Overview:
The family of this 69-nucleotide RNA sequence from Aeromonas phage vB_AveS_KLEA5 is "int-alpA RNA". It is annotated as a small RNA. Rfam's curators write: Acidobacteria (1 example), Planctomycetes (1 example), Proteobacteria. Lineage of the source: Viruses > Duplodnaviria > Heunggongvirae > Uroviricota > Caudoviricetes.
[Rfam]
RNA sequence: GAUGUGGAUAGGUUUAGCGGCCGAAAAGACAGAACACAGACUGUCCUUCCACAACACUUCAAUCUGUGA
Numbered sequence: 001g002a003u004g005u006g007g008a009u010a011g012g013u014u015u016a017g018c019g020g021c022c023g024a025a026a027a028g029a030c031a032g033a034a035c036a037c038a039g040a041c042u043g044u045c046c047u048u049c050c051a052c053a054a055c056a057c058u059u060c061a062a063u064c065u066g067u068g069a
Stems, first nucleotide, its partner, number of pairs: 001055001003053006011022004028045005040067001